[Rfam]
RNA sequence: CUCGAGUUGUCUCUCAUGUCUAGACCAUUUGUGAGAAGGGGUUUUAUAGGUGCACCUCACCAAUCUCUAAAUGACUAAAUAUACAAUUAGUAUUAGGCUCAUAUAAGGAAGUUAACUUCUAUACAUAAAGUGCACUGAUGACUUUUCCAGAUGCUAUAUAGAUACUUUUUAGAAUUAGGUCAUGCCAAGUCUCCAACUCAUAUAUAAUCGUAUACACUUUUGGACAUACAUUUUCCCUAAGAGAUGCCAAACUUCUGUCUGGAGUGGAGCUUUCUCGUGAUAGCUCAUAAUUUGUAGCUUGCACAACUUAAGCUACACUAGUUUACUUGAUAAAAAAAUUGAGUGGAGUGGGGGAGGUGCUGGAUUAUUUCCCCUUCUCAUCGAUGGUCUAGAUUUGCGAGGUGACUCUAAUAGUGG
Numbered sequence: 001c002u003c004g005a006g007u008u009g010u011c012u013c014u015c016a017u018g019u020c021u022a023g024a025c026c027a028u029u030u031g032u033g034a035g036a037a038g039g040g041g042u043u044u045u046a047u048a049g050g051u052g053c054a055c056c057u058c059a060c061c062a063a064u065c066u067c068u069a070a071a072u073g074a075c076u077a078a079a080u081a082u083a084c085a086a087u088u089a090g091u092a093u094u095a096g097g098c099u100c101a102u103a104u105a106a107g108g109a110a111g112u113u114a115a116c117u118u119c120u121a122u123a124c125a126u127a128a129a130g131u132g133c134a135c136u137g138a139u140g141a142c143u144u145u146u147c148c149a150g151a152u153g154c155u156a157u158a159u160a161g162a163u164a165c166u167u168u169u170u171a172g173a174a175u176u177a178g179g180u181c182a183u184g185c186c187a188a189g190u191c192u193c194c195a196a197c198u199c200a201u202a203u204a205u206a207a208u209c210g211u212a213u214a215c216a217c218u219u220u221u222g223g224a225c226a227u228a229c230a231u232u233u234u235c236c237c238u239a240a241g242a243g244a245u246g247c248c249a250a251a252c253u254u255c256u257g258u259c260u261g262g263a264g265u266g267g268a269g270c271u272u273u274c275u276c277g278u279g280a281u282a283g284c285u286c287a288u289a290a291u292u293u294g295u296a297g298c299u300u301g302c303a304c305a306a307c308u309u310a311a312g313c314u315a316c317a318c319u320a321g322u323u324u325a326c327u328u329g330a331u332a333a334a335a336a337a338a339u340u341g342a343g344u345g346g347a348g349u350g351g352g353g354g355a356g357g358u359g360c361u362g363g364a365u366u367a368u369u370u371c372c373c374c375u376u377c378u379c380a381u382c383g384a385u386g387g388u389c390u391a392g393a394u395u396u397g398c399g400a401g402g403u404g405a406c407u408c409u410a411a412u413a414g415u416g417g
Stems, first nucleotide, its partner, number of pairs: 001416001003414001004408010015397002018394012031381011052360005060351003066347004